[Rfam]
RNA sequence: GCGGGCUUAGCUUACUAUUCCAUGGUCGGCAAUUGGGCCAAGGUUCUG
Number, nucleotide and partner (000 for none) at each position: 001g000002c000003g000004g000005g000006c043007u042008u041009a000010g038011c037012u036013u035014a034015c000016u000017a000018u031019u000020c029021c028022a000023u000024g000025g000026u000027c000028g021029g020030c000031a018032a000033u000034u014035g013036g012037g011038c010039c000040a000041a008042g007043g006044u000045u000046c000047u000048g000